[Rfam]
RNA: Clostridiales-1 RNA
RNA sequence: UGAUGCCAGGGUCAAAAGUAGAUAGCAAUACAUGUUUACAUGCAAAGUGCUAUCUACUGGCUUGACCCGCUAAACACCGACAAGAAGCAAAUUUGCUUGCAAAUAUGCGGGAUUGGAGGUGUUUAUAGGAUUGCGAAAAUUGCGUAGCAAAUGUAGCAAUCCGUCGCGUCA
Numbered sequence: 001u002g003a004u005g006c007c008a009g010g011g012u013c014a015a016a017a018g019u020a021g022a023u024a025g026c027a028a029u030a031c032a033u034g035u036u037u038a039c040a041u042g043c044a045a046a047g048u049g050c051u052a053u054c055u056a057c058u059g060g061c062u063u064g065a066c067c068c069g070c071u072a073a074a075c076a077c078c079g080a081c082a083a084g085a086a087g088c089a090a091a092u093u094u095g096c097u098u099g100c101a102a103a104u105a106u107g108c109g110g111g112a113u114u115g116g117a118g119g120u121g122u123u124u125a126u127a128g129g130a131u132u133g134c135g136a137a138a139a140u141u142g143c144g145u146a147g148c149a150a151a152u153g154u155a156g157c158a159a160u161c162c163g164u165c166g167c168g169u170c171a
Stems, first nucleotide, its partner, number of pairs: 001171006010067004017058011029046001031042004071125008081115003087108003091104005128162007139152003